A member of the RNA family "Selenocysteine insertion sequence 1" from Mauremys mutica, 64 nucleotides long. NCBI's taxonomy places the organism under Eukaryota, Craniata, Teleostomi, Testudinata, Mauremys. The base pairs follow the family's consensus structure, which is taken from published work. The incorporation of selenocysteine into a protein sequence is directed by an in-frame UGA codon (usually a stop codon) within the coding region of the mRNA. Selenoprotein mRNAs contain a conserved secondary structure in the 3' UTR that is required for the distinction of UGA stop from UGA selenocysteine. The selenocysteine insertion sequence (SECIS) is around 60 nt in length and adopts a hairpin structure which is sufficiently well-defined and conserved to act as a computational screen for selenoprotein genes.
RNA sequence: CUUGCAUUAGUGAGGACAGAAGCAUAAACUAUAACCUAGGGGCUUCUGUUUGAUAUUUAGCAAC
Numbered sequence: 001c002u003u004g005c006a007u008u009a010g011u012g013a014g015g016a017c018a019g020a021a022g023c024a025u026a027a028a029c030u031a032u033a034a035c036c037u038a039g040g041g042g043c044u045u046c047u048g049u050u051u052g053a054u055a056u057u058u059a060g061c062a063a064c
Stems, first nucleotide, its partner, number of pairs: 002063004015050009029039003